[Rfam]
RNA sequence: CCCUUAUCUUUUAAAAGUUUCAAGUUGGUCCCUUAUCUUUAUUUUAGGUUUCAAGUUGGUCCCUUCCGUCAAUUUUUUAACUAUUUCCGUUAAAUUUAGACACGUGGCAAACUAAUUUGGACAUGUGACACACUUGGACAGAUGACACGUGUCCAAAUUUAACGGUAACAGUACAAAAUUUGACGGAAUGGACCAACUUGAAACCUAAAAAAAAGAUAAGGACCAACUUGAAACUUUUAAAAGAUAAGGGA
Numbered sequence: 001c002c003c004u005u006a007u008c009u010u011u012u013a014a015a016a017g018u019u020u021c022a023a024g025u026u027g028g029u030c031c032c033u034u035a036u037c038u039u040u041a042u043u044u045u046a047g048g049u050u051u052c053a054a055g056u057u058g059g060u061c062c063c064u065u066c067c068g069u070c071a072a073u074u075u076u077u078u079a080a081c082u083a084u085u086u087c088c089g090u091u092a093a094a095u096u097u098a099g100a101c102a103c104g105u106g107g108c109a110a111a112c113u114a115a116u117u118u119g120g121a122c123a124u125g126u127g128a129c130a131c132a133c134u135u136g137g138a139c140a141g142a143u144g145a146c147a148c149g150u151g152u153c154c155a156a157a158u159u160u161a162a163c164g165g166u167a168a169c170a171g172u173a174c175a176a177a178a179u180u181u182g183a184c185g186g187a188a189u190g191g192a193c194c195a196a197c198u199u200g201a202a203a204c205c206u207a208a209a210a211a212a213a214a215g216a217u218a219a220g221g222a223c224c225a226a227c228u229u230g231a232a233a234c235u236u237u238u239a240a241a242a243g244a245u246a247a248g249g250g251a
Base pairs, nucleotide, nucleotide: 002249003248004247005246006245007244008243023228024227025226027224028223029222031221032220033219034218035217036216037215038214039213040212042210043209045207046206047205
Dot-bracket structure: .(((((((..............(((.(((.((((((((((.((.(((.............................................................................................................................................................))).)).))))))))))))).)))..............)))))))..
Record summary
Shown here is a 251-nucleotide RNA from Trifolium subterraneum, a member of the family "MIR2655 microRNA precursor family". Rfam 15.1 lists 892 matches to the family in 5 species. NCBI's taxonomy places the organism under Eukaryota, Embryophyta, Euphyllophyta, fabids, Trifolium. The base pairs follow the family's consensus structure, which was predicted with RNAalifold.